This 74-nucleotide sequence from Fructilactobacillus fructivorans belongs to the Rfam family "tRNA". NCBI's taxonomy places the organism under Bacteria, Bacillati, Bacillota, Bacilli, Fructilactobacillus. Its family is annotated with triplet codon-amino acid adaptor activity in the Gene Ontology. A search with the family's covariance model found it, with a score of 73 bits. From the family's description: Transfer RNA (tRNA) molecules are approximately 80 nucleotides in length.

RNA sequence: GCCGACUUAGCUCAGUUGGCUAGAGCGCUUCACUAGUAAUGAAGAGGUCGUAGGUUCGAAUCCUAUAGUCGGCA
Number, nucleotide and partner (000 for none) at each position: 001g073002c072003c071004g070005a069006c068007u067008u000009a000010g026011c025012u024013c023014a000015g000016u000017u000018g000019g000020c000021u000022a000023g013024a012025g011026c010027g000028c044029u043030u042031c041032a040033c000034u000035a000036g000037u000038a000039a000040u032041g031042a030043a029044g028045a000046g000047g000048u000049c000050g066051u065052a064053g063054g062055u000056u000057c000058g000059a000060a000061u000062c054063c053064u052065a051066u050067a007068g006069u005070c004071g003072g002073c001074a000